[Rfam]
Nucleotides: 097
Base pairs, nucleotide, nucleotide: 001097003095004094005093010085011084012083013082014081015080016079017078018077019076020074021073022072026057027056029055030054031053032052033051034050035049036048040091041090042089043088044087061071062070063069
Number, partner (000 for none) and nucleotide at each position: 001097u002000a003095c004094a005093g006000a007000g008000u009000a010085g011084a012083a013082a014081a015080u016079a017078a018077a019076g020074c021073g022072u023000u024000a025000a026057g027056u028000g029055c030054c031053g032052a033051c034050g035049g036048g037000a038000u039000g040091g041090g042089a043088u044087g045000u046000u047000g048036c049035c050034u051033g052032u053031u054030g055029g056027a057026c058000g059000a060000a061071g062070a063069a064000u065000u066000u067000a068000u069063u070062u071061c072022g073021c074020g075000a076019u077018u078017u079016u080015a081014u082013u083012u084011u085010c086000g087044c088043a089042u090041u091040c092000g093005c094004u095003g096000c097001a
Shown here is a 97-nucleotide RNA from Vagococcus lutrae, a member of the family "THF (Tetrahydrofolate) riboswitch aptamer". About the family: Tetrahydrofolate (THF) riboswitch was first reported for Ames et al. as an RNA motif in 5' untranslated (5'-UTR)regions of folate transport and biosynthesis genes in Firmicutes genomes. Rfam 15.1 lists 747 matches to the family in 747 species. Lineage of the source: Bacteria > Bacillota > Bacilli > Vagococcus > Vagococcus lutrae. It scores 90 bits against the family's covariance model. Gene Ontology term of the family: tetrahydrofolate metabolic process.